[Rfam]
RNA sequence: CACCGAGUCCGAGGUCCCGGGCUCACCGGGACUUGGUGCAAAAGGGA
Dot-bracket structure: ............((((((((.....))))))))..............
raiA-hairpin RNA: a 47-nucleotide sequence from Streptomyces collinus. The sequence is in the family's curated seed alignment. Rfam classes the family as a small RNA.